[Rfam]
RNA sequence: AUGGGGUCUUGCUAUGUUGCCCAGGCUGGUCUUGAACUCCUAGCCUGGGCAACAUAGCAACAGCCACC
Numbered sequence: 001a002u003g004g005g006g007u008c009u010u011g012c013u014a015u016g017u018u019g020c021c022c023a024g025g026c027u028g029g030u031c032u033u034g035a036a037c038u039c040c041u042a043g044c045c046u047g048g049g050c051a052a053c054a055u056a057g058c059a060a061c062a063g064c065c066a067c068c
Stems, first nucleotide, its partner, number of pairs: 007062001009060006019050007032043003

mir-1285 microRNA precursor family: a 68-nucleotide RNA from Pan troglodytes. NCBI's taxonomy places the organism under Eukaryota, Eumetazoa, Euteleostomi, Homininae, Pan. A search with the family's covariance model found it, with a score of 62 bits.